Overview:
Rfam assigns this 113-nucleotide sequence from Thermobrachium celere to the family "Ribosomal protein L20 leader". Pairs were carried over by alignment from the consensus structure, which was predicted with CMfinder. The family's RNA type in Rfam is cis-regulatory leader.
RNA sequence: AGUGUUAAGUAGAAGCCAUCCGCUUCUCACCUUACGCCAAAGGUAGUAAGGUUAUUGCAAUAAGUUCUGAAUGUUUGCGGAUGGAGUCUGUCCAUCCGCUUUUGUUUUGUAAU
Numbered sequence: 001a002g003u004g005u006u007a008a009g010u011a012g013a014a015g016c017c018a019u020c021c022g023c024u025u026c027u028c029a030c031c032u033u034a035c036g037c038c039a040a041a042g043g044u045a046g047u048a049a050g051g052u053u054a055u056u057g058c059a060a061u062a063a064g065u066u067c068u069g070a071a072u073g074u075u076u077g078c079g080g081a082u083g084g085a086g087u088c089u090g091u092c093c094a095u096c097c098g099c100u101u102u103u104g105u106u107u108u109g110u111a112a113u
Base pairs, nucleotide, nucleotide: 011027012026013025014024015023016022029052030051031050034047035046037043038042077099078098079097080096081095082094083093084092085091
Dot-bracket structure: ..........((((((.....)))))).(((..((.((...))..))..)))........................(((((((((.....)))))))))..............